A member of the RNA family "Streptococcus sRNA SpF01" from Streptococcus mitis, 80 nucleotides long. The organism belongs to Streptococcus mitis, within Bacteria. On this family, see Mann et al., PLoS Pathog 2012: "Control of virulence by small RNAs in Streptococcus pneumoniae". It is one of the family's seed sequences.

RNA sequence: AUUUUAUUGAAUAAGAUAGGCUUUAGAGCCUUGAUAUUAAGCACUUUGGGGCGUUUUCCCUUAGUGCUUUUUUUGUUUUU
Numbered sequence: 001a002u003u004u005u006a007u008u009g010a011a012u013a014a015g016a017u018a019g020g021c022u023u024u025a026g027a028g029c030c031u032u033g034a035u036a037u038u039a040a041g042c043a044c045u046u047u048g049g050g051g052c053g054u055u056u057u058c059c060c061u062u063a064g065u066g067c068u069u070u071u072u073u074u075g076u077u078u079u080u
Stems, first nucleotide, its partner, number of pairs: 018080003031075001034072001039069007048060004